RNA sequence: GUCGGGAGGGCGGCUGAAUACAACACCCGCAAGGGGAAUAAGCCCGCCGGCUACAUGCGGUUUCAACCCUCCCGACACCUUGCG
Numbered sequence: 001g002u003c004g005g006g007a008g009g010g011c012g013g014c015u016g017a018a019u020a021c022a023a024c025a026c027c028c029g030c031a032a033g034g035g036g037a038a039u040a041a042g043c044c045c046g047c048c049g050g051c052u053a054c055a056u057g058c059g060g061u062u063u064c065a066a067c068c069c070u071c072c073c074g075a076c077a078c079c080u081u082g083c084g
Base pairs, nucleotide, nucleotide: 001076002075003074004073005072006071007070008069009068012044013043014042015041017039026035027034028033046061047060048059049058
RNA: sRNA-Xcc1
Organism: Pseudoxanthomonas sp. CF125